c-di-AMP riboswitch aptamer (ydaO/yuaA leader): a 151-nucleotide RNA from Vallicoccus soli. Taxonomically the source falls in Vallicoccus (Bacteria, Bacillati, Actinomycetota, Actinomycetes). The base pairs follow the family's consensus structure.
RNA sequence: CCCACGAGCACACCGCAGGCAGGAGCGGGGGACCCACUUCCGGGCGCGCGCACCCCCUCGCGCGCGUCCUCGGGGUGAAGCCGCUCCGGCGGCCGGGCCACCUCCGGCCCGAACCCGACAGCUGACCCCGCAGGCGUCGGAGAAGGACCGU
Number, nucleotide and partner (000 for none) at each position: 001c023002c022003c000004a000005c000006g000007a000008g000009c000010a000011c000012a000013c000014c000015g000016c000017a000018g000019g000020c000021a000022g002023g001024a000025g131026c130027g129028g128029g127030g126031g000032a000033c000034c000035c072036a000037c000038u000039u000040c000041c000042g000043g000044g000045c000046g000047c000048g000049c000050g000051c000052a000053c000054c000055c000056c000057c000058u000059c000060g000061c000062g000063c000064g000065c000066g000067u000068c000069c000070u000071c000072g035073g116074g115075g114076u000077g000078a000079a000080g000081c092082c091083g090084c089085u000086c000087c000088g000089g084090c083091g082092g081093c000094c000095g110096g109097g108098c107099c000100a000101c000102c000103u000104c000105c000106g000107g098108c097109c096110c095111g000112a000113a000114c075115c074116c073117g000118a000119c000120a000121g000122c000123u000124g000125a000126c030127c029128c028129c027130g026131c025132a000133g000134g000135c000136g000137u000138c000139g000140g000141a000142g000143a000144a000145g000146g000147a000148c000149c000150g000151u000